Notes: This 126-nucleotide sequence from Caenorhabditis brenneri belongs to the Rfam family "Caenorhabditis snoRNA ceN110". The base pairs follow the family's consensus structure, which was predicted with RNAalifold. Rfam 15.1 lists 10 matches to the family in 9 species. The literature on the family includes a 2007 paper in BMC Mol Biol by Jia et al., "Systematic identification of non-coding RNA 2,2,7-trimethylguanosine cap structures in Caenorhabditis elegans".
RNA sequence: UAGCAAGUGUCCAUUACGCAGAGGCGGUUGUCUCUUGUUGUUUAGUUUAGCUUGCAAAAUUAAAAUUACAUCUCGAAGACAGAAGCUUCGUUUUUUAGAUCUUCUGUUCAAGAUUGUCAAACAAUU
Numbered sequence: 001u002a003g004c005a006a007g008u009g010u011c012c013a014u015u016a017c018g019c020a021g022a023g024g025c026g027g028u029u030g031u032c033u034c035u036u037g038u039u040g041u042u043u044a045g046u047u048u049a050g051c052u053u054g055c056a057a058a059a060u061u062a063a064a065a066u067u068a069c070a071u072c073u074c075g076a077a078g079a080c081a082g083a084a085g086c087u088u089c090g091u092u093u094u095u096u097a098g099a100u101c102u103u104c105u106g107u108u109c110a111a112g113a114u115u116g117u118c119a120a121a122c123a124a125u126u
Base pairs, nucleotide, nucleotide: 003055004054005053006052007051008050016041017040018039019037020036021035066119070114071113072112073111075109076108079107080106081105082104083103085101